About this RNA
The record is a 103-nucleotide RNA sequence from Paenibacillus lutrae, which matches "Purine riboswitch aptamer" in Rfam.

RNA sequence: AAUAUAUCGUUUUAAUCAUCUCGUAUAAUCAUCGGGGAUAUGGCCCGAAAGUUUCUACCCAAAAGCCGUAAAUUUUUGGACUACGAGAACGAAGUUGAGGGGA
Numbered sequence: 001a002a003u004a005u006a007u008c009g010u011u012u013u014a015a016u017c018a019u020c021u022c023g024u025a026u027a028a029u030c031a032u033c034g035g036g037g038a039u040a041u042g043g044c045c046c047g048a049a050a051g052u053u054u055c056u057a058c059c060c061a062a063a064a065g066c067c068g069u070a071a072a073u074u075u076u077u078g079g080a081c082u083a084c085g086a087g088a089a090c091g092a093a094g095u096u097g098a099g100g101g102g103a
Base pairs, nucleotide, nucleotide: 019088020087021086022085023084024083025082029050032048033047034046035045036044059079060078061077062076063075064074065073
Taxonomically the source falls in Paenibacillus (Bacteria, Bacillati, Bacilli, Caryophanales). Rfam describes the family as follows. Riboswitches are metabolite binding domains within certain messenger RNAs that serve as precision sensors for their corresponding targets.